RNA: mir-277 microRNA precursor family
Organism: Chironomus riparius
RNA sequence: GUAGUUUUGGAGUGCGUGUCAGUUGCGCAUUUACAUGAACAUUUCCGUAAACAAUCUAUUAAAGUAUGUUAGGGAUGGCAAUUUGUAAGCUGUAAAUGCACAUUCUGAUACGCAUUUAGAAACU
Numbered sequence: 001g002u003a004g005u006u007u008u009g010g011a012g013u014g015c016g017u018g019u020c021a022g023u024u025g026c027g028c029a030u031u032u033a034c035a036u037g038a039a040c041a042u043u044u045c046c047g048u049a050a051a052c053a054a055u056c057u058a059u060u061a062a063a064g065u066a067u068g069u070u071a072g073g074g075a076u077g078g079c080a081a082u083u084u085g086u087a088a089g090c091u092g093u094a095a096a097u098g099c100a101c102a103u104u105c106u107g108a109u110a111c112g113c114a115u116u117u118a119g120a121a122a123c124u
Stems, first nucleotide, its partner, number of pairs: 008118004015112008025101001027099009